[Rfam]
RNA sequence: UCCCUAAAAAGGCAAACUUCACCGAAAGGGGAGGACGCAAAGCCAUAGGGCUAAGGUGCACUACGUACUACGCCAGCUAGGCUGCUGAA
Dot-bracket structure: ...........((...((((.((....))))))...))..((((.((((((....((((.....))))...)))..)))))))......
RNA: c-di-GMP-I riboswitch aptamer
Organism: Thermoanaerobacteraceae bacterium SP2